This 289-nucleotide sequence from Cudoniella acicularis belongs to the Rfam family "Fungal signal recognition particle RNA". Taxonomically the source falls in Cudoniella (Eukaryota, sordariomyceta, Helotiales, Helotiaceae). Gene Ontology terms of the family: signal recognition particle, endoplasmic reticulum targeting, signal recognition particle, plasma membrane targeting and SRP-dependent cotranslational protein targeting to membrane, signal sequence recognition. The literature on the family includes a 2002 paper in Curr Opin Struct Biol by Wild et al., "Towards the structure of the mammalian signal recognition particle".

RNA sequence: CGGCUGUAACGGUCACAAACUCGAAGAAGAUAUCAACAAUCCCAAGCCUUCCCAUCCAUUUCGCUACCCUUUCGGGGGCAGCACCACCAACAGUGCCCAGUUCGAACAUGGUGGUGGUUCCCCACUCGUGCAGGUAACUCACGAUGCUGAAGGGGUCCCUAAGCAAUGGAGAAUACUUCUUGAGGGAGGUCUCACUCUGCAGAGAGUUCUUCACCAUGGUGUGGCGGUAUUGGAUUACGCUUGUUGCGUGGUUUGGAUGGUGGGUUUGGGUUGAGCGUCAACUUCACUU
Numbered sequence: 001c002g003g004c005u006g007u008a009a010c011g012g013u014c015a016c017a018a019a020c021u022c023g024a025a026g027a028a029g030a031u032a033u034c035a036a037c038a039a040u041c042c043c044a045a046g047c048c049u050u051c052c053c054a055u056c057c058a059u060u061u062c063g064c065u066a067c068c069c070u071u072u073c074g075g076g077g078g079c080a081g082c083a084c085c086a087c088c089a090a091c092a093g094u095g096c097c098c099a100g101u102u103c104g105a106a107c108a109u110g111g112u113g114g115u116g117g118u119u120c121c122c123c124a125c126u127c128g129u130g131c132a133g134g135u136a137a138c139u140c141a142c143g144a145u146g147c148u149g150a151a152g153g154g155g156u157c158c159c160u161a162a163g164c165a166a167u168g169g170a171g172a173a174u175a176c177u178u179c180u181u182g183a184g185g186g187a188g189g190u191c192u193c194a195c196u197c198u199g200c201a202g203a204g205a206g207u208u209c210u211u212c213a214c215c216a217u218g219g220u221g222u223g224g225c226g227g228u229a230u231u232g233g234a235u236u237a238c239g240c241u242u243g244u245u246g247c248g249u250g251g252u253u254u255g256g257a258u259g260g261u262g263g264g265u266u267u268g269g270g271u272u273g274a275g276c277g278u279c280a281a282c283u284u285c286a287c288u289u
Stems, first nucleotide, its partner, number of pairs: 002014003025289001028284001036272001037269001039267001048264003052260007064081002067078004085250003088246005093240003097233005102227003106222004111217004116158001118155004122149001123146002126144005132139002159163001167213007177206005186197003